c-di-AMP riboswitch aptamer (ydaO/yuaA leader): a 168-nucleotide sequence from Cohnella zeiphila. The organism belongs to Cohnella, within Bacteria.
RNA sequence: CAUACUCUCCAGCCGAAUUUCUGCAAGAAAACGGGGGAACCAUUUGAUCGUGCGCGCUUAUCGCAUUCGAUCCCGGGGUGAAUUCCGGUGCCAUGUACGCGCCGGAUAGGGCUGCCUGUUCAGGCCCGAACCCGUCAGCUAACCUCGUAGGCUGUCAAGGAACAGGAC
Numbered sequence: 001c002a003u004a005c006u007c008u009c010c011a012g013c014c015g016a017a018u019u020u021c022u023g024c025a026a027g028a029a030a031a032c033g034g035g036g037g038a039a040c041c042a043u044u045u046g047a048u049c050g051u052g053c054g055c056g057c058u059u060a061u062c063g064c065a066u067u068c069g070a071u072c073c074c075g076g077g078g079u080g081a082a083u084u085c086c087g088g089u090g091c092c093a094u095g096u097a098c099g100c101g102c103c104g105g106a107u108a109g110g111g112c113u114g115c116c117u118g119u120u121c122a123g124g125c126c127c128g129a130a131c132c133c134g135u136c137a138g139c140u141a142a143c144c145u146c147g148u149a150g151g152c153u154g155u156c157a158a159g160g161a162a163c164a165g166g167a168c
Base pairs, nucleotide, nucleotide: 011153012152013151014150018030019029020028031148032147033146034145035144036143041075076133077132078131084106085105086104087103088102089101090100109127110126111125112124